[Rfam]
c-di-GMP-I riboswitch aptamer: a 128-nucleotide RNA sequence from Thermobacillus composti. The family's consensus secondary structure is taken from published work. NCBI's taxonomy places the organism under Bacteria, Bacilli, Caryophanales, Paenibacillaceae, Thermobacillus composti.

RNA sequence: UUGGGAUCAAGGCAACCUGCGCGAAAGCGCAAGGGCGCAAAGCUACAGGGGCUAAUCGGCGGGAUGGACCGGACCUCCGCAAUUCGGGCGGACGGGCGGUUCGCGCCGGAUGCCAGCCAGCUGCCGAA
Numbered sequence: 001u002u003g004g005g006a007u008c009a010a011g012g013c014a015a016c017c018u019g020c021g022c023g024a025a026a027g028c029g030c031a032a033g034g035g036c037g038c039a040a041a042g043c044u045a046c047a048g049g050g051g052c053u054a055a056u057c058g059g060c061g062g063g064a065u066g067g068a069c070c071g072g073a074c075c076u077c078c079g080c081a082a083u084u085c086g087g088g089c090g091g092a093c094g095g096g097c098g099g100u101u102c103g104c105g106c107c108g109g110a111u112g113c114c115a116g117c118c119a120g121c122u123g124c125c126g127a128a
Stems, first nucleotide, its partner, number of pairs: 012038002017033001018031005041122004048118002050114003057108004